[Rfam]
Nucleotides: 081
Base pairs, nucleotide, nucleotide: 001080002079003078004077005076006075007074010026011025012024028044029043030042031041032040057073058072059071060070061069
Number, partner (000 for none) and nucleotide at each position: 001080g002079g003078g004077g005076a006075g007074g008000u009000a010026g011025c012024g013000a014000a015000g016000u017000g018000g019000c020000u021000a022000a023000a024012c025011g026010c027000g028044g029043c030042u031041g032040a033000c034000u035000g036000u037000a038000a039000c040032u041031c042030a043029g044028u045000u046000c047000c048000u049000u050000u051000c052000g053000g054000u055000u056000c057073g058072g059071u060070g061069g062000u063000u064000c065000g066000a067000a068000u069061c070060c071059g072058c073057c074007c075006c076005u077004c078003c079002c080001c081000a
The family of this 81-nucleotide sequence from Massilimicrobiota sp. An134 is "tRNA". The match comes from Rfam's covariance-model search (59 bits). Taxonomically the source falls in Massiliimicrobium (Bacteria, Erysipelotrichia, Erysipelotrichales, Erysipelotrichaceae). Pairs were carried over by alignment from the consensus structure, which is taken from published work.